[Rfam]
RNA sequence: UGCGACACCCAUCAAAGGAGUAGUACCCCUCUAGGAGCUACUUUACCAUAUUCCGGGAAU
Numbered sequence: 001u002g003c004g005a006c007a008c009c010c011a012u013c014a015a016a017g018g019a020g021u022a023g024u025a026c027c028c029c030u031c032u033a034g035g036a037g038c039u040a041c042u043u044u045a046c047c048a049u050a051u052u053c054c055g056g057g058a059a060u
Stems, first nucleotide, its partner, number of pairs: 017044008026035002
The record is a 60-nucleotide sequence from Tetracentron sinense, which matches "Plastid-psbN 5UTR RNA" in Rfam. It scores 57 bits against the family's covariance model. The family has 63 seed sequences and 2,345 matches in Rfam 15.1. Rfam describes the family as follows. Plastid psbN is a non-coding RNA (ncRNA) recognised in plastids. It was reported as a conserved 11 stem-loop in the prime untranslated region (5UTR) of psbN genes.